[Rfam]
RNA sequence: GGUCUGCAUCAGGAGUUGGGUUGACCCCCAACGCCAACCUGCCUCCCCGGGCAAGGUGGCGUCCCGUUCAGGGAGAUGCGGCCGUUUCCGGCAACCAACGGGACCACG
Numbered sequence: 001g002g003u004c005u006g007c008a009u010c011a012g013g014a015g016u017u018g019g020g021u022u023g024a025c026c027c028c029c030a031a032c033g034c035c036a037a038c039c040u041g042c043c044u045c046c047c048c049g050g051g052c053a054a055g056g057u058g059g060c061g062u063c064c065c066g067u068u069c070a071g072g073g074a075g076a077u078g079c080g081g082c083c084g085u086u087u088c089c090g091g092c093a094a095c096c097a098a099c100g101g102g103a104c105c106a107c108g
Base pairs, nucleotide, nucleotide: 006079007078008077009076010075015032016031017030018029019028020027033060034059035058038056039055040054041052042051043050047102048101081092082091083090084089
RNA: SAM-I/IV (S-adenosyl methionine) riboswitch aptamer
Organism: Lichenicola cladoniae